[Rfam]
A member of the RNA family "Small nucleolar RNA snoR99" from Panicum miliaceum, 102 nucleotides long.
Lineage of the source: Eukaryota > Streptophyta > Magnoliopsida > Paniceae > Panicum sect. Panicum.
The match comes from Rfam's covariance-model search (81 bits).
RNA sequence: GUGCCUGUGGGAUGAACAGGUCCCAAAAUUUAAUACCAUUUCACUCACUUUGUCAGCUAUUAUCCAUACAUUAUUAGCUGAUCAUUUAAGAAUGGAAAAUUU
Numbered sequence: 001g002u003g004c005c006u007g008u009g010g011g012a013u014g015a016a017c018a019g020g021u022c023c024c025a026a027a028a029u030u031u032a033a034u035a036c037c038a039u040u041u042c043a044c045u046c047a048c049u050u051u052g053u054c055a056g057c058u059a060u061u062a063u064c065c066a067u068a069c070a071u072u073a074u075u076a077g078c079u080g081a082u083c084a085u086u087u088a089a090g091a092a093u094g095g096a097a098a099a100u101u102u
Stems, first nucleotide, its partner, number of pairs: 036095005052082008